RNA: SAH (S-adenosyl-L-homocysteine) riboswitch aptamer
Organism: Acidovorax sp. RAC01
RNA sequence: UGGCCCAAGGAGCGUUGCAGCGGCAGACCCCACCCAGGACGGUGGUGCGUCCCCGUCAGGCUUGGGCUGGCACACACCCUCACAACGACGCUCACCUGUU
Dot-bracket structure: .(((((((............(((.............................)))......)))))))................................